[Rfam]
RNA sequence: AGAAGUUUAGGAUAUACAGUCCAAGAGCCUUCAAAGCCCUUAGAAAACAAACAAGUUUAACUUCUG
Numbered sequence: 001a002g003a004a005g006u007u008u009a010g011g012a013u014a015u016a017c018a019g020u021c022c023a024a025g026a027g028c029c030u031u032c033a034a035a036g037c038c039c040u041u042a043g044a045a046a047a048c049a050a051a052c053a054a055g056u057u058u059a060a061c062u063u064c065u066g
Base pairs, nucleotide, nucleotide: 001065002064003063004062005061006060007059010022011021012020013019024040025039027037028036045058046057047056048055
Background: Rfam assigns this 66-nucleotide RNA to the family "tRNA". Rfam classes the family as a transfer RNA. The sequence is in the family's curated seed alignment. The family's consensus secondary structure is taken from published work.